Record summary
The record is an 88-nucleotide RNA from Aquarana catesbeiana, which matches "mir-191 microRNA precursor family" in Rfam. NCBI's taxonomy places the organism under Eukaryota, Opisthokonta, Deuterostomia, Craniata, Aquarana. On this family, see Kim et al., Proc Natl Acad Sci U S A 2004: "Identification of many microRNAs that copurify with polyribosomes in mammalian neurons". It scores 71 bits against the family's covariance model.
[Rfam]
RNA sequence: CGCUGGGGAUCGGACAACGGAAUCCCAAAAGCAGCUGUUAUAAUAACGGUUCAGCUGCUCUUGGGUCCCGUUAACCGAUCGUUAGCAA
Numbered sequence: 001c002g003c004u005g006g007g008g009a010u011c012g013g014a015c016a017a018c019g020g021a022a023u024c025c026c027a028a029a030a031g032c033a034g035c036u037g038u039u040a041u042a043a044u045a046a047c048g049g050u051u052c053a054g055c056u057g058c059u060c061u062u063g064g065g066u067c068c069c070g071u072u073a074a075c076c077g078a079u080c081g082u083u084a085g086c087a088a
Base pairs, nucleotide, nucleotide: 009079010078011077012076013075017071018070019069020068022066023065024064025063027062028061031058032057033056034055035054036053037052